[Rfam]
RNA: Small nucleolar RNA Z103
RNA sequence: GAGGAGGUGAUGAUCCUUUCCCCAGAUGAUCGACGCUGAACAUAACGUGCGCUUUUUUUUAACAUUCUCUUUGGAGAAAACCAAGCCAGGACUCUGAUCCUC
Numbered sequence: 001g002a003g004g005a006g007g008u009g010a011u012g013a014u015c016c017u018u019u020c021c022c023c024a025g026a027u028g029a030u031c032g033a034c035g036c037u038g039a040a041c042a043u044a045a046c047g048u049g050c051g052c053u054u055u056u057u058u059u060u061a062a063c064a065u066u067c068u069c070u071u072u073g074g075a076g077a078a079a080a081c082c083a084a085g086c087c088a089g090g091a092c093u094c095u096g097a098u099c100c101u102c
Stems, first nucleotide, its partner, number of pairs: 001102005